[Rfam]
RNA sequence: CUCUUAUCCAGAGAGGUGGAGGGACUAGGCCCUGUGAAACCCGGCAACCGGCGAAAGCGUACGGUGCCAAUUCCGGCGAUGAUGAUCGCAAGAUGAGAG
Number, nucleotide and partner (000 for none) at each position: 001c099002u098003c097004u096005u095006a094007u093008c092009c000010a000011g000012a000013g042014a000015g041016g040017u039018g000019g000020a000021g032022g031023g030024a000025c000026u076027a000028g074029g073030c023031c022032c021033u000034g000035u000036g000037a000038a000039a017040c016041c015042c013043g068044g067045c066046a065047a000048c064049c063050g000051g060052c059053g058054a000055a000056a000057g000058c053059g052060u051061a000062c000063g049064g048065u046066g045067c044068c043069a000070a000071u000072u091073c029074c028075g000076g026077c088078g087079a086080u085081g000082a000083u000084g000085a080086u079087c078088g077089c000090a000091a072092g008093a007094u006095g005096a004097g003098a002099g001